The record is an 85-nucleotide RNA from Thermincola carboxydiphila, which matches "c-di-GMP-I riboswitch aptamer" in Rfam. NCBI's taxonomy places the organism under Bacteria, Eubacteriales, Thermincolaceae, Thermincola, Thermincola carboxydiphila.
RNA sequence: UAUAUCGUUUGGCAAACCAUGCGAAAGCAUGGGGCGCAAAGCCAUGGGUCUACGGCCGAAGGGCCAGGAUUGCCAGGUUGCAGUA
Dot-bracket structure: ...........((...((((((....))))))...))..((((.((((((....(((....)))...)))..)))))))......